[Rfam]
RNA: SAM-I/IV (S-adenosyl methionine) riboswitch aptamer
RNA sequence: GUACCGCAUUAAGAGAAGAGCAACGCUCUCGCCAACCUGCCUGUCUGGGCAAGGUGGUCACCAAGCAACGGCUUGGGAUGUGCCUGACAAAGUAUCACCAGGAACCUUCAGACGCAUU
Numbered sequence: 001g002u003a004c005c006g007c008a009u010u011a012a013g014a015g016a017a018g019a020g021c022a023a024c025g026c027u028c029u030c031g032c033c034a035a036c037c038u039g040c041c042u043g044u045c046u047g048g049g050c051a052a053g054g055u056g057g058u059c060a061c062c063a064a065g066c067a068a069c070g071g072c073u074u075g076g077g078a079u080g081u082g083c084c085u086g087a088c089a090a091a092g093u094a095u096c097a098c099c100a101g102g103a104a105c106c107u108u109c110a111g112a113c114g115c116a117u118u
Base pairs, nucleotide, nucleotide: 006081007080008079009078010077015030017029018028019027020026021025031058032057033056036054037053038052039050040049041048046111083102084101085100086099